[Rfam]
RNA sequence: UUUACCCUGGGGGGGUUCGUCAGCGGAUUUAUGUCCCUGAGCCGAAUAAGCAACAUAACAGGGUUGGUAUUGGGGUAGCUAUUGAGCAAGCUCGGCUUGUACCCGAGAAGCCUGCGGUUACCAUUACUGAUCCCGCCUUGAACCUGAUGGUUCAAGGGCUACGAUCCUUCAACGGCAUUCCCGGGGUUCCC
Number, nucleotide and partner (000 for none) at each position: 001u000002u000003u000004a187005c186006c185007c184008u183009g182010g181011g180012g000013g178014g000015g176016u175017u000018c174019g173020u172021c000022a000023g000024c000025g000026g000027a000028u000029u000030u000031a000032u000033g159034u158035c157036c156037c000038u154039g153040a152041g151042c150043c149044g000045a000046a000047u000048a000049a000050g000051c000052a000053a000054c000055a000056u000057a000058a000059c000060a000061g134062g133063g132064u000065u129066g128067g127068u126069a125070u000071u000072g000073g000074g122075g121076u120077a119078g118079c117080u116081a000082u000083u000084g000085a000086g111087c110088a000089a000090g000091c107092u106093c105094g104095g103096c000097u000098u000099g000100u000101a000102c000103c095104c094105g093106a092107g091108a000109a000110g087111c086112c000113u000114g000115c000116g080117g079118u078119u077120a076121c075122c074123a000124u000125u069126a068127c067128u066129g065130a000131u000132c063133c062134c061135g000136c000137c000138u000139u000140g000141a000142a000143c000144c000145u000146g000147a000148u000149g043150g042151u041152u040153c039154a038155a000156g036157g035158g034159c033160u000161a000162c000163g000164a000165u000166c000167c000168u000169u000170c000171a000172a020173c019174g018175g016176c015177a000178u013179u000180c011181c010182c009183g008184g007185g006186g005187u004188u000189c000190c000191c000
A member of the RNA family "6S / SsrS RNA" from Vibrio cholerae, 191 nucleotides long. The family's RNA type in Rfam is non-coding RNA gene. The literature on the family includes a 2000 paper in Cell by Wassarman and Storz, "6S RNA regulates E. coli RNA polymerase activity". The base pairs follow the family's consensus structure, which is taken from published work.